[Rfam]
The record is a 114-nucleotide RNA, which matches "DUF3800-I RNA" in Rfam. The sequence is in the family's curated seed alignment. About the family: Actinobacteria, Firmicutes, Fusobacteria, Proteobacteria (1 example), Tenericutes (2 examples).

RNA sequence: UACAGACGUAAGUACUGUUACACAGCCAUAAGCGAUCAAAUUGAUUAAGCGUAUUGUAAAUACGUCGCCUGGUUGGGAUAACCCUUCUGAUUCAGAAGGGUUAUUUUUGUUCAU
Numbered sequence: 001u002a003c004a005g006a007c008g009u010a011a012g013u014a015c016u017g018u019u020a021c022a023c024a025g026c027c028a029u030a031a032g033c034g035a036u037c038a039a040a041u042u043g044a045u046u047a048a049g050c051g052u053a054u055u056g057u058a059a060a061u062a063c064g065u066c067g068c069c070u071g072g073u074u075g076g077g078a079u080a081a082c083c084c085u086u087c088u089g090a091u092u093c094a095g096a097a098g099g100g101u102u103a104u105u106u107u108u109g110u111u112c113a114u
Stems, first nucleotide, its partner, number of pairs: 001020001002018004006013002023075006032068003035045003049065006078104012

Annotation: It is annotated as a small RNA.